[Rfam]
RNA sequence: GGAAGCUGAAUUCAGAUGGUGCCAUAGAGUACUUUUAUGGCAUCUAGCACCAUUUGAAAUCAGUGUUCU
Numbered sequence: 001g002g003a004a005g006c007u008g009a010a011u012u013c014a015g016a017u018g019g020u021g022c023c024a025u026a027g028a029g030u031a032c033u034u035u036u037a038u039g040g041c042a043u044c045u046a047g048c049a050c051c052a053u054u055u056g057a058a059a060u061c062a063g064u065g066u067u068c069u
Stems, first nucleotide, its partner, number of pairs: 001069004005064005011058004016053006025046004